[Rfam]
RNA sequence: GUGCUGUGAUGACUUCUUAGGACACCUUUGGAUCUUACAUGAAAAGAACCGAACUAAAAUCUGAGGCACC
Numbered sequence: 001g002u003g004c005u006g007u008g009a010u011g012a013c014u015u016c017u018u019a020g021g022a023c024a025c026c027u028u029u030g031g032a033u034c035u036u037a038c039a040u041g042a043a044a045a046g047a048a049c050c051g052a053a054c055u056a057a058a059a060u061c062u063g064a065g066g067c068a069c070c
Stems, first nucleotide, its partner, number of pairs: 001069004
Dot-bracket structure: ((((.............................................................)))).
RNA: Small nucleolar RNA SNORD58